[Rfam]
RNA sequence: AUAUCUAUAGGGAAUGAAGUGCUCCCACGUUUAUUAACGAAACCGCUUAUUAUAAGCUGAUGACUUCUGCGUUUUU
Numbered sequence: 001a002u003a004u005c006u007a008u009a010g011g012g013a014a015u016g017a018a019g020u021g022c023u024c025c026c027a028c029g030u031u032u033a034u035u036a037a038c039g040a041a042a043c044c045g046c047u048u049a050u051u052a053u054a055a056g057c058u059g060a061u062g063a064c065u066u067c068u069g070c071g072u073u074u075u076u
Stems, first nucleotide, its partner, number of pairs: 010026004016067005045057004
Annotation: The family of this 76-nucleotide RNA sequence from Erysipelothrix sp. HDW6C is "Fluoride riboswitch aptamer (crcB RNA motif)". A search with the family's covariance model found it, with a score of 49 bits. The source organism's lineage runs through Bacteria, Bacillota, Erysipelotrichia, Erysipelotrichales and Erysipelothrix. Its family is annotated with positive regulation of gene expression and response to fluoride in the Gene Ontology.